[Rfam]
RNA sequence: UUUGGGUGAAAUAGUGGUCCGUUAAGUUGAAGAAAAAGACAUCAUCCCUUGAGAUAAAAUUAGGUUUGUUUCCUUUUACUCCCAAAAUCUUUUUACCGUGGGUAAAAAGAAUCAAUAUGGGGGUAUAAAAGGAACCAAAUUUAAGUUUAACUCAAGGGGUCUUGAUGUCGUUUUUUCAAACAGGACGGAUCAUUAUUUUCCCCAAG
Number, nucleotide and partner (000 for none) at each position: 001u000002u000003u204004g203005g202006g201007u000008g199009a198010a197011a196012u195013a194014g193015u192016g191017g190018u189019c188020c187021g186022u185023u184024a000025a000026g181027u180028u178029g177030a176031a175032g174033a173034a172035a171036a000037a000038g000039a000040c000041a166042u165043c164044a163045u159046c158047c157048c000049u155050u154051g153052a152053g151054a000055u149056a148057a147058a146059a000060u144061u143062a142063g141064g140065u139066u138067u137068g136069u000070u134071u133072c132073c131074u130075u129076u128077u125078a124079c123080u122081c121082c120083c119084a118085a000086a000087a000088u000089c109090u108091u107092u106093u105094u104095a103096c102097c101098g000099u000100g000101g097102g096103u095104a094105a093106a092107a091108a090109g089110a000111a000112u000113c000114a000115a000116u000117a000118u084119g083120g082121g081122g080123g079124u078125a077126u000127a000128a076129a075130a074131g073132g072133a071134a070135c000136c068137a067138a066139a065140u064141u063142u062143a061144a060145g000146u058147u057148u056149a055150a000151c053152u052153c051154a050155a049156g000157g047158g046159g045160u000161c000162u000163u044164g043165a042166u041167g000168u000169c000170g000171u035172u034173u033174u032175u031176u030177c029178a028179a000180a027181c026182a000183g000184g023185a022186c021187g020188g019189a018190u017191c016192a015193u014194u013195a012196u011197u010198u009199u008200c000201c006202c005203c004204a003205a000206g000
MIR2670 microRNA precursor family: a 206-nucleotide sequence from Medicago truncatula. NCBI's taxonomy places the organism under Eukaryota, Spermatophyta, rosids, fabids, Medicago. It scores 184 bits against the family's covariance model.